[Rfam]
RNA sequence: CCAAAGGCUCUUUUAAGAGCCACCCACGAAUUUCUUAAAAAGAGCU
Numbered sequence: 001c002c003a004a005a006g007g008c009u010c011u012u013u014u015a016a017g018a019g020c021c022a023c024c025c026a027c028g029a030a031u032u033u034c035u036u037a038a039a040a041a042g043a044g045c046u
Base pairs, nucleotide, nucleotide: 006021007020008019009018010017011016
Histone 3' UTR stem-loop: a 46-nucleotide sequence from Camarhynchus parvulus.
From the family's description: The mRNAs of metazoan histone genes lack a poly-A tail. 3' end processing occurs at a site between a highly conserved stem-loop (modelled by this family) and a purine rich region around 20 nts downstream (the histone downstream element, or HDE). The stem-loop is bound by a 31 kDa stem-loop binding protein (SLBP - also termed the histone hairpin binding protein, or HBP). Together with U7 snRNA binding of the HDE, SLBP binding nucleate s the formation of the processing complex. The histone 3' UTR stem-loop is also involved in nucleocytoplasmic transport of the mRNA, and in stability regulation and translation efficiency in the cytoplasm.
By type it is a cis-regulatory element.